[Rfam]
RNA sequence: UAAAACUGAAUGAUAUGCCCUCGUAUAUCCUUGGAAAUAUGGUCCGAAAGUUUCUACCGGAGCACCGUAAAUGCUCUGACUAUGAAGGCAGAAUAUCUGGUC
Numbered sequence: 001u002a003a004a005a006c007u008g009a010a011u012g013a014u015a016u017g018c019c020c021u022c023g024u025a026u027a028u029c030c031u032u033g034g035a036a037a038u039a040u041g042g043u044c045c046g047a048a049a050g051u052u053u054c055u056a057c058c059g060g061a062g063c064a065c066c067g068u069a070a071a072u073g074c075u076c077u078g079a080c081u082a083u084g085a086a087g088g089c090a091g092a093a094u095a096u097c098u099g100g101u102c
Base pairs, nucleotide, nucleotide: 018088019087021085022084023083024082025081031047032046033045034044035043058078059077060076061075062074063073064072